[Rfam]
Nucleotides: 149
Base pairs, nucleotide, nucleotide: 002095003094004093005092006091007090008089010067011066012065013064014063015062020046024044025043026042027041028039029038048055049054069085070084071083072082106141107140108139109138110137111136112135113134114133115132116131
Number, partner (000 for none) and nucleotide at each position: 001000c002095u003094g004093c005092c006091a007090g008089c009000c010067g011066c012065a013064g014063u015062a016000c017000c018000c019000g020046a021000a022000c023000c024044g025043g026042u027041c028039c029038u030000a031000c032000u033000c034000c035000c036000c037000a038029a039028g040000a041027g042026g043025c044024c045000a046020u047000c048055c049054c050000c051000a052000a053000g054049g055048g056000a057000g058000c059000u060000c061000a062015u063014g064013c065012u066011g067010c068000g069085g070084g071083g072082c073000c074000c075000u076000g077000a078000g079000c080000a081000a082072g083071c084070c085069c086000u087000c088000u089008g090007c091006u092005g093004g094003c095002g096000c097000c098000u099000a100000u101000g102000a103000a104000a105000c106141g107140a108139c109138a110137c111136a112135g113134g114133c115132c116131u117000g118000a119000u120000c121000c122000u123000c124000g125000c126000g127000g128000a129000c130000c131116a132115g133114g134113c135112c136111u137110g138109u139108g140107u141106u142000u143000u144000u145000u146000g147000c148000g149000c

Proteobacterial sRNA sX11: a 149-nucleotide sequence from Stenotrophomonas maltophilia. The organism belongs to Stenotrophomonas maltophilia, within Bacteria. Rfam's curators put it in the seed alignment. It is annotated as a small RNA.